[Rfam]
Nucleotides: 084
Stems, first nucleotide, its partner, number of pairs: 001084004011073001014070004019065006027058007
Number, partner (000 for none) and nucleotide at each position: 001084c002083u003082c004081u005000a006000a007000a008000u009000g010000a011073u012000u013000u014070u015069g016068a017067u018000u019065g020064u021063u022062g023061c024060u025000c026000a027058g028057a029056a030055a031054g032053c033052c034000u035000u036000u037000c038000a039000a040000u041000u042000a043000a044000u045000u046000u047000a048000c049000g050000a051000u052033g053032g054031c055030u056029u057028u058027c059000u060024a061023g062022c063021a064020a065019u066000a067017a068016u069015c070014a071000u072000u073011a074000c075000c076000a077000a078000g079000a080000a081004a082003g083002a084001g
Notes: The record is an 84-nucleotide RNA sequence from Aphis gossypii, which matches "mir-315 microRNA precursor family" in Rfam. A search with the family's covariance model found it, with a score of 70 bits. Taxonomically the source falls in Aphis (Eukaryota, Altocrustacea, Pterygota, Neoptera). A reference for the family is Aravin et al. (2003), "The small RNA profile during Drosophila melanogaster development", Dev Cell.